[Rfam]
RNA sequence: ACGCAGUGCAAAGGGCCACUUCGGCACCGCCCCUCGGGGCUUGUGUGUGCUGGGGAAAGUCCCCGGGCGACGAGGUAGAAAGUACCACUCCGAAAGGAUAGGACCCUCGCGGCAGGCUCGAGCCUUUCGGGGCCAGAGCCACGCUGCGGGGCAGCUCGCCAUUUUCACAGUUAUGUGGCCUCCUGCUGCGGCUGGACUGCGGUGCCUCGGCUCCGCAAUCUAGUCGACGGGAAACUCAACGGGGCUUACUCUUGUGCUGACG
Number, nucleotide and partner (000 for none) at each position: 001a000002c262003g261004c259005a258006g257007u256008g255009c254010a253011a252012a000013g000014g180015g179016c178017c177018a176019c175020u000021u053022c052023g051024g050025c049026a048027c047028c000029g040030c039031c038032c037033c000034u000035c000036g000037g032038g031039g030040c029041u000042u000043g000044u000045g000046u000047g027048u026049g025050c024051u023052g022053g021054g000055g000056a000057a247058a246059g245060u000061c244062c243063c242064c241065g000066g000067g000068c000069g000070a000071c000072g000073a000074g086075g085076u084077a083078g000079a000080a000081a000082g000083u077084a076085c075086c074087a000088c000089u098090c097091c096092g000093a000094a000095a000096g091097g090098a089099u000100a000101g152102g000103a000104c000105c000106c000107u000108c148109g147110c146111g145112g144113c143114a000115g140116g139117c138118u000119c000120g000121a000122g133123c132124c131125u130126u000127u000128c000129g000130g125131g124132g123133c122134c000135a000136g000137a000138g117139c116140c115141a000142c000143g113144c112145u111146g110147c109148g108149g000150g000151g000152c101153a000154g000155c000156u000157c000158g000159c000160c000161a000162u000163u000164u000165u000166c000167a000168c000169a000170g000171u000172u000173a000174u000175g019176u018177g017178g016179c015180c014181u000182c231183c230184u229185g228186c000187u226188g000189c000190g000191g000192c000193u000194g000195g000196a000197c000198u000199g000200c000201g000202g000203u000204g000205c000206c000207u000208c000209g000210g000211c000212u000213c000214c000215g000216c000217a000218a000219u000220c000221u000222a000223g000224u000225c000226g187227a000228c185229g184230g183231g182232a000233a000234a000235c000236u000237c000238a000239a000240c000241g064242g063243g062244g061245c059246u058247u057248a000249c000250u000251c000252u011253u010254g009255u008256g007257c006258u005259g004260a000261c003262g002

RNase MRP: a 262-nucleotide RNA sequence from Helicosporidium sp. ATCC 50920. Its family is annotated with ribonuclease MRP activity, ribonuclease MRP complex and rRNA processing in the Gene Ontology. Rfam classes the family as a ribozyme. Taxonomically the source falls in Helicosporidium (Eukaryota, Viridiplantae, Chlorophyta, Chlorellales). It scores 96 bits against the family's covariance model.